[Rfam]
RNA sequence: AGCUUUGCGCAGUGGCAAUAUCGUAGGGUUUAUCCGAGGUGCAAUUAUUGCCAAUUGAAAACUUUUCCCAAUACCCCGCCGUGACGACUUGCAAUACAGUCGGCACUGGCAAUUUUUGACAGUCUCUACGGAGA
Numbered sequence: 001a002g003c004u005u006u007g008c009g010c011a012g013u014g015g016c017a018a019u020a021u022c023g024u025a026g027g028g029u030u031u032a033u034c035c036g037a038g039g040u041g042c043a044a045u046u047a048u049u050g051c052c053a054a055u056u057g058a059a060a061a062c063u064u065u066u067c068c069c070a071a072u073a074c075c076c077c078g079c080c081g082u083g084a085c086g087a088c089u090u091g092c093a094a095u096a097c098a099g100u101c102g103g104c105a106c107u108g109g110c111a112a113u114u115u116u117u118g119a120c121a122g123u124c125u126c127u128a129c130g131g132a133g134a
Stems, first nucleotide, its partner, number of pairs: 020045002023042002026035003078110003081106003085102005123134004
A member of the RNA family "U4 spliceosomal RNA" from Sapajus apella, 134 nucleotides long. The match comes from Rfam's covariance-model search (94 bits). The family has 177 seed sequences and 32,178 matches in Rfam 15.1. Lineage of the source: Eukaryota > Metazoa > Theria > Boreoeutheria > Sapajus. Rfam links the family to the GO terms spliceosomal tri-snRNP complex assembly and U4 snRNP. The family is grouped with related families in Rfam's "U4 clan".